[Rfam]
The family of this 173-nucleotide RNA sequence from Streptomyces sp. B93 is "gntR-DTE RNA". A search with the family's covariance model found it, with a score of 92 bits. The base pairs follow the family's consensus structure, which is taken from published work. By type it is a small RNA.
RNA sequence: CGGGUGAUGGCCGCUGGUGGCCACUUCGAGGCGGGGGAACCUGUCCCGCCCUGCGUGUCAGCUCUGGAGAACAGCCCCCGGGAUCAUCCCUUCCUCACGGGAGGUCAACCCGGUGUCUGCCACCUGGUGCGCGCCGCCCUGCUGGCGUCAGAGCAGUGACGAUGACGCGCCCG
Numbered sequence: 001c002g003g004g005u006g007a008u009g010g011c012c013g014c015u016g017g018u019g020g021c022c023a024c025u026u027c028g029a030g031g032c033g034g035g036g037g038a039a040c041c042u043g044u045c046c047c048g049c050c051c052u053g054c055g056u057g058u059c060a061g062c063u064c065u066g067g068a069g070a071a072c073a074g075c076c077c078c079c080g081g082g083a084u085c086a087u088c089c090c091u092u093c094c095u096c097a098c099g100g101g102a103g104g105u106c107a108a109c110c111c112g113g114u115g116u117c118u119g120c121c122a123c124c125u126g127g128u129g130c131g132c133g134c135c136g137c138c139c140u141g142c143u144g145g146c147g148u149c150a151g152a153g154c155a156g157u158g159a160c161g162a163u164g165a166c167g168c169g170c171c172c173g
Base pairs, nucleotide, nucleotide: 016138017137018136019135020134021133053132054131055130056129057128058127059126060125061124065122066121067120072119073118074117076115